[Rfam]
RNA sequence: AAAUGCCAUGAGGUAUCUGAUGCUUAGUCCAAAUAAAUGGCUGGGUAUCUCGUUGGAUUGGCAGAAAACGGAUGGAGCAGGCCUUGCGACACUGGUGCUCUUUUCUAUGGGCUUCCUGUUACUUUUUUCCUGCUCACAUUU
Numbered sequence: 001a002a003a004u005g006c007c008a009u010g011a012g013g014u015a016u017c018u019g020a021u022g023c024u025u026a027g028u029c030c031a032a033a034u035a036a037a038u039g040g041c042u043g044g045g046u047a048u049c050u051c052g053u054u055g056g057a058u059u060g061g062c063a064g065a066a067a068a069c070g071g072a073u074g075g076a077g078c079a080g081g082c083c084u085u086g087c088g089a090c091a092c093u094g095g096u097g098c099u100c101u102u103u104u105c106u107a108u109g110g111g112c113u114u115c116c117u118g119u120u121a122c123u124u125u126u127u128u129c130c131u132g133c134u135c136a137c138a139u140u141u
Stems, first nucleotide, its partner, number of pairs: 004063005009057001019049011031038001076134005091119002094116002097112003

The record is a 141-nucleotide RNA sequence from Asparagus officinalis, which matches "Small nucleolar RNA F1/F2/snoR5a" in Rfam. This family contains F1, F2 and snoR5a sequences, all of which are members of the the H/ACA class of snoRNA that guide the sites of modification of uridines to pseudouridines. The family's consensus secondary structure was predicted with PFOLD. The family's RNA type in Rfam is H/ACA-box small nucleolar RNA. NCBI's taxonomy places the organism under Eukaryota, Euphyllophyta, Mesangiospermae, Petrosaviidae, Asparagus. Rfam 15.1 lists 325 matches to the family in 97 species. It scores 76 bits against the family's covariance model.